[Rfam]
RNA sequence: AUCCCGUUUCCGUGUCCGGGUUAUGGCACGGUUCCUCCCUGUAAGACUGGCCGGGCCUUGUGCCCGGUCUUUUUU
Numbered sequence: 001a002u003c004c005c006g007u008u009u010c011c012g013u014g015u016c017c018g019g020g021u022u023a024u025g026g027c028a029c030g031g032u033u034c035c036u037c038c039c040u041g042u043a044a045g046a047c048u049g050g051c052c053g054g055g056c057c058u059u060g061u062g063c064c065c066g067g068u069c070u071u072u073u074u075u
Stems, first nucleotide, its partner, number of pairs: 010031007049069008

Notes:
The record is a 75-nucleotide RNA from Boseongicola aestuarii, which matches "Singlet oxygen resistance RNA X" in Rfam. Rfam links the family to the GO term response to photooxidative stress. It is annotated as a small RNA. Rfam describes the family as follows. SorX (RSs2461)like SorY is a singlet oxygen induced sRNA that counteracts oxidative stress by targeting mRNA for a transporter in Rhodobacter. It also has an impact on resistance against organic hydroperoxides.